[Rfam]
RNA sequence: CCCCCCCUCUUCCCUUUUCCAUCAAAUCUGAACCCUGGUCUUGGUGGUCAUAAAAGGAGGCACAGUGGUACUGAAGCUGUGCUUAUAGUAUCUGCUGUAUAGCAUAUGGGCUACUUUCAAACAAGG
Numbered sequence: 001c002c003c004c005c006c007c008u009c010u011u012c013c014c015u016u017u018u019c020c021a022u023c024a025a026a027u028c029u030g031a032a033c034c035c036u037g038g039u040c041u042u043g044g045u046g047g048u049c050a051u052a053a054a055a056g057g058a059g060g061c062a063c064a065g066u067g068g069u070a071c072u073g074a075a076g077c078u079g080u081g082c083u084u085a086u087a088g089u090a091u092c093u094g095c096u097g098u099a100u101a102g103c104a105u106a107u108g109g110g111c112u113a114c115u116u117u118c119a120a121a122c123a124a125g126g
Base pairs, nucleotide, nucleotide: 003060004059006057007056019047020046021045022044023043026039027038028037078113079112081111082110083109084108086104

Small nucleolar RNA SNORA61: a 126-nucleotide sequence from Capra hircus. The organism belongs to Capra, within Eukaryota. The family's RNA type in Rfam is H/ACA-box small nucleolar RNA. The family's consensus secondary structure was predicted with PFOLD. A search with the family's covariance model found it, with a score of 88 bits.